[Rfam]
RNA sequence: CGACUUUUCGUGGUUGGUGGUUGAACUUCGAUUUUAAGUAUUUAAAUAAAAUGAAAUCUGUUCAUUCUCCGACACAAGAAGUUC
Numbered sequence: 001c002g003a004c005u006u007u008u009c010g011u012g013g014u015u016g017g018u019g020g021u022u023g024a025a026c027u028u029c030g031a032u033u034u035u036a037a038g039u040a041u042u043u044a045a046a047u048a049a050a051a052u053g054a055a056a057u058c059u060g061u062u063c064a065u066u067c068u069c070c071g072a073c074a075c076a077a078g079a080a081g082u083u084c
Stems, first nucleotide, its partner, number of pairs: 002083007010075003014072004019067001022064005030058005
RNA: mir-973 microRNA precursor family